About this RNA
Rfam assigns this 389-nucleotide RNA from [Mannheimia] succiniciproducens to the family "Bacterial RNase P class A". Rfam classes the family as a ribozyme. NCBI's taxonomy places the organism under Bacteria, Pseudomonadati, Gammaproteobacteria, Basfia, [Mannheimia] succiniciproducens. Gene Ontology terms of the family: tRNA processing, ribonuclease P activity and dimeric ribonuclease P complex.
RNA sequence: CGAGUUGGUCAGACAAUCGCUGGUUUAUUGAAGCCCUUAACCGUAGUAAUACGACCUAGCGGGACAAGUAAACGAGAGGAAAGUCCGAGCUACAUAGGGCAGAGUGCCAGAUAACGUCUGGGAGGCGUGAGCCUACGACAAGUGCAGCAGAGAGCAAACCGCCGAUGGCUCGCAAGAGAUCAGGUAAGGGUGAAAGGGUGCGGUAAGAGCGCACCGCAUGGCUGGUAACAGUACAUGGCAGGGUAAACUCCACUCGUAGCAAGACCAAAUAGGAACUCAAUGGGUGUGCCCGCCCAGAGUUCGGGUAGGUUGCUUGAGCGUAUGUGCGAAUAUACGCCUAGAGGAAUGAUUGUCCGCGACAGAACUCGGCUUAUCGACCAACUCAAUCU
Numbered sequence: 001c002g003a004g005u006u007g008g009u010c011a012g013a014c015a016a017u018c019g020c021u022g023g024u025u026u027a028u029u030g031a032a033g034c035c036c037u038u039a040a041c042c043g044u045a046g047u048a049a050u051a052c053g054a055c056c057u058a059g060c061g062g063g064a065c066a067a068g069u070a071a072a073c074g075a076g077a078g079g080a081a082a083g084u085c086c087g088a089g090c091u092a093c094a095u096a097g098g099g100c101a102g103a104g105u106g107c108c109a110g111a112u113a114a115c116g117u118c119u120g121g122g123a124g125g126c127g128u129g130a131g132c133c134u135a136c137g138a139c140a141a142g143u144g145c146a147g148c149a150g151a152g153a154g155c156a157a158a159c160c161g162c163c164g165a166u167g168g169c170u171c172g173c174a175a176g177a178g179a180u181c182a183g184g185u186a187a188g189g190g191u192g193a194a195a196g197g198g199u200g201c202g203g204u205a206a207g208a209g210c211g212c213a214c215c216g217c218a219u220g221g222c223u224g225g226u227a228a229c230a231g232u233a234c235a236u237g238g239c240a241g242g243g244u245a246a247a248c249u250c251c252a253c254u255c256g257u258a259g260c261a262a263g264a265c266c267a268a269a270u271a272g273g274a275a276c277u278c279a280a281u282g283g284g285u286g287u288g289c290c291c292g293c294c295c296a297g298a299g300u301u302c303g304g305g306u307a308g309g310u311u312g313c314u315u316g317a318g319c320g321u322a323u324g325u326g327c328g329a330a331u332a333u334a335c336g337c338c339u340a341g342a343g344g345a346a347u348g349a350u351u352g353u354c355c356g357c358g359a360c361a362g363a364a365c366u367c368g369g370c371u372u373a374u375c376g377a378c379c380a381a382c383u384c385a386a387u388c389u
Base pairs, nucleotide, nucleotide: 002384003383004382005381006380007379008378009377010376011374012354013353014352015351016350017349018348020076021075023073024072025071026070027069028068081372082371083370085369086368087367088366089365090259091258092257093256097290099289100288102255103254104253105252106251107121108120109119110118111117122136123134124133125132126131137250138249142248143247144244145243159189160188161185162184163183166182167181169178170177171176197215198214199213200212201211202210216239217237218236219235220234222231223230224229263311264310265309266308273302274301275300276299277298278297282295283294284293285292286291318337319336320335321334322333323332324331325330